[Rfam]
RNA sequence: ACCGUUCAUCCUGUAGGUGAUUAUCAGCUUCAGCAAGCAGCUAUCCUCAGGACGGAAGUAGGGAAGUACUCUCCCGAAGGAACGCACC
Numbered sequence: 001a002c003c004g005u006u007c008a009u010c011c012u013g014u015a016g017g018u019g020a021u022u023a024u025c026a027g028c029u030u031c032a033g034c035a036a037g038c039a040g041c042u043a044u045c046c047u048c049a050g051g052a053c054g055g056a057a058g059u060a061g062g063g064a065a066g067u068a069c070u071c072u073c074c075c076g077a078a079g080g081a082a083c084g085c086a087c088c
Stems, first nucleotide, its partner, number of pairs: 003084005009052005055085001061075003